[Rfam]
RNA sequence: GCUGGUGUAAAUGAUGACUUUACUUUUUUCCCCAUCAGAUCGAUCAUGCUGAUCUCUAAAUACUUGCCAGUUAAUUCUGAUGCAUCAGC
Numbered sequence: 001g002c003u004g005g006u007g008u009a010a011a012u013g014a015u016g017a018c019u020u021u022a023c024u025u026u027u028u029u030c031c032c033c034a035u036c037a038g039a040u041c042g043a044u045c046a047u048g049c050u051g052a053u054c055u056c057u058a059a060a061u062a063c064u065u066g067c068c069a070g071u072u073a074a075u076u077c078u079g080a081u082g083c084a085u086c087a088g089c
Base pairs, nucleotide, nucleotide: 001089002088003087004086005085006084007083008082009081
RNA: Small nucleolar SNORD12/SNORD106
Organism: Rhinolophus ferrumequinum